Background:
Shown here is a 274-nucleotide sequence from Nannospalax galili, a member of the family "Mason-Pfizer monkey virus packaging signal". Taxonomically the source falls in Nannospalax (Eukaryota, Craniata, Boreoeutheria, Glires). It is annotated as a cis-regulatory element. About the family: This family represents a group of sequences that are related to the Mason-Pfizer monkey virus (MPMV) packaging signal. The packaging signal is located in the 5' UTR and is required for specific RNA encapsidation.
[Rfam]
RNA sequence: UGGCACCCAACGUGGGGCCUGGAUACUGGGGACAACGUAAGGGUCCGGUGAUGGAGGAAAAAGGGGUGUGCACCCACUCAAACAAUUCGGAGACGCCACGGGAGCCUGCUGCGACUGAGCCAAAGGUAAGUUGGUCAUUCAAUCAUGGGGCAAGAAUUAAGUCAGCAUCAGAUUUAUGUGAUACAGUUAAGAGAAGCUCUACAGGCAAGAGGAGUAAAGGUUAAAACUGAGGAUUUAUUUCAAUUCUUUGAUUUUGUAAAGGAUAUUUGUCCCU
Numbered sequence: 001u002g003g004c005a006c007c008c009a010a011c012g013u014g015g016g017g018c019c020u021g022g023a024u025a026c027u028g029g030g031g032a033c034a035a036c037g038u039a040a041g042g043g044u045c046c047g048g049u050g051a052u053g054g055a056g057g058a059a060a061a062a063g064g065g066g067u068g069u070g071c072a073c074c075c076a077c078u079c080a081a082a083c084a085a086u087u088c089g090g091a092g093a094c095g096c097c098a099c100g101g102g103a104g105c106c107u108g109c110u111g112c113g114a115c116u117g118a119g120c121c122a123a124a125g126g127u128a129a130g131u132u133g134g135u136c137a138u139u140c141a142a143u144c145a146u147g148g149g150g151c152a153a154g155a156a157u158u159a160a161g162u163c164a165g166c167a168u169c170a171g172a173u174u175u176a177u178g179u180g181a182u183a184c185a186g187u188u189a190a191g192a193g194a195a196g197c198u199c200u201a202c203a204g205g206c207a208a209g210a211g212g213a214g215u216a217a218a219g220g221u222u223a224a225a226a227c228u229g230a231g232g233a234u235u236u237a238u239u240u241c242a243a244u245u246c247u248u249u250g251a252u253u254u255u256g257u258a259a260a261g262g263a264u265a266u267u268u269g270u271c272c273c274u
Stems, first nucleotide, its partner, number of pairs: 006031003012026003036053003082127002086124002094117001097113001099111003131153003136150001138149004158201002161197002209249007218236005259274001261272004